Shown here is a 65-nucleotide sequence from Lentibacillus salicampi, a member of the family "Bacillaceae-1 RNA". It scores 41 bits against the family's covariance model.
[Rfam]
RNA sequence: AAAGAACUGUCAUCGGCUAAGUUCGCGACAACAAUCGCAACGCCGAUAUUAGCACGUCCUGUGCG
Numbered sequence: 001a002a003a004g005a006a007c008u009g010u011c012a013u014c015g016g017c018u019a020a021g022u023u024c025g026c027g028a029c030a031a032c033a034a035u036c037g038c039a040a041c042g043c044c045g046a047u048a049u050u051a052g053c054a055c056g057u058c059c060u061g062u063g064c065g
Base pairs, nucleotide, nucleotide: 012047013046014045015044016043017042025038026037027036028035052064053063054062055061
The family's consensus secondary structure is taken from published work. Taxonomically the source falls in Lentibacillus (Bacteria, Bacillati, Bacillota, Bacilli).